Rfam assigns this 121-nucleotide RNA from Carlito syrichta to the family "U4atac minor spliceosomal RNA". NCBI's taxonomy places the organism under Eukaryota, Opisthokonta, Craniata, Tarsiidae, Carlito. Rfam describes the family as follows. U4atac is an essential component of the minor U12-type spliceosome complex which is required for removal of the rarer class of eukaryotic introns (AT-AC, U12-type).
RNA sequence: ACCACCCUUUUCUUGGGGUUGUACUACUGUUGAAUUAGCACAUAGUGAAGGCAGUAGUGAAAACACCUACACAAUAUAUUCCCAUCAACCAGAGCUUUACCUUGGUGACAUUUUUGGAAAA
Numbered sequence: 001a002c003c004a005c006c007c008u009u010u011u012c013u014u015g016g017g018g019u020u021g022u023a024c025u026a027c028u029g030u031u032g033a034a035u036u037a038g039c040a041c042a043u044a045g046u047g048a049a050g051g052c053a054g055u056a057g058u059g060a061a062a063a064c065a066c067c068u069a070c071a072c073a074a075u076a077u078a079u080u081c082c083c084a085u086c087a088a089c090c091a092g093a094g095c096u097u098u099a100c101c102u103u104g105g106u107g108a109c110a111u112u113u114u115u116g117g118a119a120a121a
Base pairs, nucleotide, nucleotide: 006018007017008016009015022059023058024057026055027054028053029052030051031050038046039045083107084106085105086104087103091098092097